[Rfam]
RNA sequence: ACAACAAGAAUAAAAAAUGCGGCAAACCCAAUAAAAACAAGACGUAACGGAUCUGACACAACAAGAACAAUACGGCAGAGACGAAGCUAACUGAUUUUUUUGGAGUGGAUGACUUUUCGGGGGCGUGCCCCGCAACCAGACAGAGAACAAUAAAACUACCUCAAGGUAGCGCCCGUCACGGUUGGAUCAGCAAUGAUGAAGGUCGAUCAGCGCUCAAAAAAAUACGUUUGCUCUUGAUCCCGGAUGGGGAUCGCACAAGCACCAAAGAGGCAACGGUUGCCAAAAACAACAAUAGACCGCCCUCCAAUAACAAAAAAAGAGCACGCAACAAUCUUUGAGGGGAGCUUCGGCUCCCCUCAGUGCAUUCAGGGCUUUUUCAACGCCUGUCGUC
Numbered sequence: 001a002c003a004a005c006a007a008g009a010a011u012a013a014a015a016a017a018u019g020c021g022g023c024a025a026a027c028c029c030a031a032u033a034a035a036a037a038c039a040a041g042a043c044g045u046a047a048c049g050g051a052u053c054u055g056a057c058a059c060a061a062c063a064a065g066a067a068c069a070a071u072a073c074g075g076c077a078g079a080g081a082c083g084a085a086g087c088u089a090a091c092u093g094a095u096u097u098u099u100u101u102g103g104a105g106u107g108g109a110u111g112a113c114u115u116u117u118c119g120g121g122g123g124c125g126u127g128c129c130c131c132g133c134a135a136c137c138a139g140a141c142a143g144a145g146a147a148c149a150a151u152a153a154a155a156c157u158a159c160c161u162c163a164a165g166g167u168a169g170c171g172c173c174c175g176u177c178a179c180g181g182u183u184g185g186a187u188c189a190g191c192a193a194u195g196a197u198g199a200a201g202g203u204c205g206a207u208c209a210g211c212g213c214u215c216a217a218a219a220a221a222a223u224a225c226g227u228u229u230g231c232u233c234u235u236g237a238u239c240c241c242g243g244a245u246g247g248g249g250a251u252c253g254c255a256c257a258a259g260c261a262c263c264a265a266a267g268a269g270g271c272a273a274c275g276g277u278u279g280c281c282a283a284a285a286a287c288a289a290c291a292a293u294a295g296a297c298c299g300c301c302c303u304c305c306a307a308u309a310a311c312a313a314a315a316a317a318a319g320a321g322c323a324c325g326c327a328a329c330a331a332u333c334u335u336u337g338a339g340g341g342g343a344g345c346u347u348c349g350g351c352u353c354c355c356c357u358c359a360g361u362g363c364a365u366u367c368a369g370g371g372c373u374u375u376u377u378c379a380a381c382g383c384c385u386g387u388c389g390u391c
Stems, first nucleotide, its partner, number of pairs: 048083002052079003098219005113210001133184005156169005237251005268373002271370001274299004319363001321361002337358009
Record summary
Shown here is a 391-nucleotide RNA sequence from Pseudomonas japonica, a member of the family "Pseudomonas sRNA CrcZ". Lineage of the source: Bacteria > Gammaproteobacteria > Pseudomonadales > Pseudomonadaceae > Pseudomonas. The match comes from Rfam's covariance-model search (324 bits). Rfam links the family to the GO term carbon catabolite repression of transcription.